[Rfam]
RNA sequence: GCUUCUUUCCCCCAGACCUGUUGGUGUACAUUACAGAGAAACCUCCAGGCUCCUUGGUGGGGAAAGAGC
Dot-bracket structure: ((((...((((...((..((..(((((.....))......)))..))...)).......))))..))))

Rfam assigns this 69-nucleotide RNA from Thamnophis sirtalis to the family "MAT2A 3'UTR stem loop A". NCBI's taxonomy places the organism under Eukaryota, Chordata, Lepidosauria, Squamata, Thamnophis. It scores 62 bits against the family's covariance model. It is annotated as a cis-regulatory element. Rfam 15.1 lists 595 matches to the family in 507 species. On this family, see Parker et al., Genome Res 2011: "New families of human regulatory RNA structures identified by comparative analysis of vertebrate genomes".